Notes: Shown here is a 440-nucleotide part of an RNA from Bulleidia extructa, a member of the family "Bacterial large subunit ribosomal RNA". Lineage of the source: Bacteria > Bacillati > Bacillota > Erysipelotrichales > Bulleidia extructa.
RNA sequence: CUCCCCGAAAUAGCUUUAGGGCUAGCGUUGAACGAAUCUACCUGGAGGUAGAGCACUGAAAUCUUGCGGGCGGCACCUAGCCGUACCAAUAGAUAUCAAACUCCGAAUGCCAGGCAAGAAUAUUCAGCAGUCAGACUGUGGGUGAUAAGGUCCAUGGUCAAAAGGGAAACAGCCCAGAUCAUCAGAUAAGGUCCCAAAAUUUACGCUAAGUGGAAAAGGAUGUGGAGACGCGCAAACAGCUAGGAGGUUGGCUCAGAAGCAGCCAUCCUUCAAAGAGUGCGUAACAGCUCACUAGUCGAGUAUCUCUGCGCCGAAAAUUUACCGGGGCUAAGCGUAAUACCGAAUCUAUGGAUUUGAAAUUAAUUCAAGUGGUAGGGGAGCGUUCCAUACAGCAUUGAAGGUAUACCGGAAGGAGUGCUGGAGCGUAUGGAAGUGAGAAU
Numbered sequence: 001c002u003c004c005c006c007g008a009a010a011u012a013g014c015u016u017u018a019g020g021g022c023u024a025g026c027g028u029u030g031a032a033c034g035a036a037u038c039u040a041c042c043u044g045g046a047g048g049u050a051g052a053g054c055a056c057u058g059a060a061a062u063c064u065u066g067c068g069g070g071c072g073g074c075a076c077c078u079a080g081c082c083g084u085a086c087c088a089a090u091a092g093a094u095a096u097c098a099a100a101c102u103c104c105g106a107a108u109g110c111c112a113g114g115c116a117a118g119a120a121u122a123u124u125c126a127g128c129a130g131u132c133a134g135a136c137u138g139u140g141g142g143u144g145a146u147a148a149g150g151u152c153c154a155u156g157g158u159c160a161a162a163a164g165g166g167a168a169a170c171a172g173c174c175c176a177g178a179u180c181a182u183c184a185g186a187u188a189a190g191g192u193c194c195c196a197a198a199a200u201u202u203a204c205g206c207u208a209a210g211u212g213g214a215a216a217a218g219g220a221u222g223u224g225g226a227g228a229c230g231c232g233c234a235a236a237c238a239g240c241u242a243g244g245a246g247g248u249u250g251g252c253u254c255a256g257a258a259g260c261a262g263c264c265a266u267c268c269u270u271c272a273a274a275g276a277g278u279g280c281g282u283a284a285c286a287g288c289u290c291a292c293u294a295g296u297c298g299a300g301u302a303u304c305u306c307u308g309c310g311c312c313g314a315a316a317a318u319u320u321a322c323c324g325g326g327g328c329u330a331a332g333c334g335u336a337a338u339a340c341c342g343a344a345u346c347u348a349u350g351g352a353u354u355u356g357a358a359a360u361u362a363a364u365u366c367a368a369g370u371g372g373u374a375g376g377g378g379a380g381c382g383u384u385c386c387a388u389a390c391a392g393c394a395u396u397g398a399a400g401g402u403a404u405a406c407c408g409g410a411a412g413g414a415g416u417g418c419u420g421g422a423g424c425g426u427a428u429g430g431a432a433g434u435g436a437g438a439a440u
Stems, first nucleotide, its partner, number of pairs: 001380006011024005026130001027128006036121001037118001039116001041114005051104001052102002057098003061094004068087002070084005134159010164175003179351004184347003190341003199338001201337006218312002222309007230301002239296005245269003250264003270274001275290001279288002352370007381435001383432007392424002400419005406413002
It is one of the family's seed sequences.